[Rfam]
RNA: Lysine riboswitch aptamer
Nucleotides: 194
Stems, first nucleotide, its partner, number of pairs: 006189006016096003020092005030082007100132005106126006133159004138155006161179007
Number, partner (000 for none) and nucleotide at each position: 001000u002000u003000g004000u005000u006189c007188c008187g009186a010185a011184g012000g013000g014000g015000u016096g017095c018094a019000u020092c021091u022090u023089u024088c025000a026000g027000a028000u029000a030082a031081c032080u033079g034078u035077g036076u037000c038000g039000a040000g041000g042000a043000a044000u045000g046000u047000a048000a049000a050000g051000c052000a053000u054000g055000u056000u057000u058000a059000g060000a061000a062000c063000a064000u065000g066000u067000u068000c069000u070000u071000a072000a073000g074000a075000c076036a077035c078034a079033c080032a081031g082030u083000a084000a085000g086000g087000g088024g089023a090022a091021a092020g093000u094018u095017g096016c097000c098000g099000a100132a101131g102130c103129u104128u105000a106126a107125u108124u109123u110122u111121g112000a113000a114000c115000u116000u117000u118000a119000c120000a121111c122110a123109g124108a125107a126106u127000c128104g129103a130102g131101c132100u133159g134158g135157u136156u137000a138155c139154c140153a141152a142151g143150g144000g145000a146000g147000a148000a149000a150143c151142c152141u153140u154139g155138g156136g157135a158134c159133u160000g161179u162178c163177a164176c165175u166174a167173u168000u169000a170000a171000a172000a173167a174166u175165a176164g177163u178162g179161g180000a181000g182000c183000a184011c185010u186009u187008c188007g189006g190000g191000a192000a193000u194000u